The record is a 188-nucleotide sequence from Vibrio genomosp. F6, which matches "MicX Vibrio cholerae sRNA" in Rfam. Pairs were carried over by alignment from the consensus structure, which was predicted with CMfinder. It is annotated as a small RNA. The match comes from Rfam's covariance-model search (157 bits). The organism belongs to Vibrio genomosp. F6, within Bacteria.

[Rfam]
RNA sequence: AUAAUAAUAGAGCGAUCUUUAGAUCGCUCAUUUAUCGAUACUUCUAUUACACUUUUGGUUUGGCCGCUGAUCAGUAGUAGAAGACGAACACUGGCGUUACGCAUAGCUGGCUGUUAGUGAGGUUCCUUACGCCGUUUACACUAACAGUUUUGUAACUCAAGCCUAAGCAUCUGCUUAGGCUUUUUUGU
Numbered sequence: 001a002u003a004a005u006a007a008u009a010g011a012g013c014g015a016u017c018u019u020u021a022g023a024u025c026g027c028u029c030a031u032u033u034a035u036c037g038a039u040a041c042u043u044c045u046a047u048u049a050c051a052c053u054u055u056u057g058g059u060u061u062g063g064c065c066g067c068u069g070a071u072c073a074g075u076a077g078u079a080g081a082a083g084a085c086g087a088a089c090a091c092u093g094g095c096g097u098u099a100c101g102c103a104u105a106g107c108u109g110g111c112u113g114u115u116a117g118u119g120a121g122g123u124u125c126c127u128u129a130c131g132c133c134g135u136u137u138a139c140a141c142u143a144a145c146a147g148u149u150u151u152g153u154a155a156c157u158c159a160a161g162c163c164u165a166a167g168c169a170u171c172u173g174c175u176u177a178g179g180c181u182u183u184u185u186u187g188u
Base pairs, nucleotide, nucleotide: 010029011028012027013026014025015024016023017022036086037085042082043081044080045079046078047077048076049075050074055070056069057068058067059066096156097155098154099153100152101151109149110148111147112146113145114144115143116142117141160181161180162179163178164177165176166175167174168173